[Rfam]
RNA sequence: CCCGAGCCAUCGGGACGAAAUGUGGGUCGGCGUCGAACGCCCGCCCGAAUCGCAAG
Numbered sequence: 001c002c003c004g005a006g007c008c009a010u011c012g013g014g015a016c017g018a019a020a021u022g023u024g025g026g027u028c029g030g031c032g033u034c035g036a037a038c039g040c041c042c043g044c045c046c047g048a049a050u051c052g053c054a055a056g
Base pairs, nucleotide, nucleotide: 001014002013003012004011005010016052017051018050024046025045026044027043

Notes
Rfam assigns this 56-nucleotide sequence to the family "eL15-Euryarchaeota ribosomal protein leader". The family's RNA type in Rfam is cis-regulatory leader. It is one of the family's seed sequences. A reference for the family is Eckert and Weinberg (2020), "Discovery of 20 novel ribosomal leader candidates in bacteria and archaea", BMC Microbiol.